[Rfam]
RNA sequence: GGGUGGUUAGUCUCAGUUGGUAGAGCGCUGCCUUCACACGGCAGAGGUCACUGGUUCGAGUCCAGUACCACCCA
Number, nucleotide and partner (000 for none) at each position: 001g073002g072003g071004u070005g069006g068007u067008u000009a000010g026011u000012c025013u024014c023015a000016g000017u000018u000019g000020g000021u000022a000023g014024a013025g012026c010027g000028c044029u043030g042031c041032c040033u000034u000035c000036a000037c000038a000039c000040g032041g031042c030043a029044g028045a000046g000047g000048u000049c000050a066051c065052u064053g063054g062055u000056u000057c000058g000059a000060g000061u000062c054063c053064a052065g051066u050067a007068c006069c005070a004071c003072c002073c001074a000
Record summary: A member of the RNA family "tRNA" from Laribacter hongkongensis, 74 nucleotides long. Rfam's curators write: Transfer RNA (tRNA) molecules are approximately 80 nucleotides in length.